[Rfam]
RNA sequence: UGAAUGGUGGGCAUUGUUUGCAUGUCUGAUGAAAUCAUCCAGUUUUUGUUGAGAUUCAAUCCAUUUCAUGUCAAAACUGGAUGAUUUCAUCAGACAUGCAAACAAUGCCCACCAUU
Numbered sequence: 001u002g003a004a005u006g007g008u009g010g011g012c013a014u015u016g017u018u019u020g021c022a023u024g025u026c027u028g029a030u031g032a033a034a035u036c037a038u039c040c041a042g043u044u045u046u047u048g049u050u051g052a053g054a055u056u057c058a059a060u061c062c063a064u065u066u067c068a069u070g071u072c073a074a075a076a077c078u079g080g081a082u083g084a085u086u087u088c089a090u091c092a093g094a095c096a097u098g099c100a101a102a103c104a105a106u107g108c109c110c111a112c113c114a115u116u
Stems, first nucleotide, its partner, number of pairs: 006113006013106016030089003
RNA: MIR397 microRNA precursor family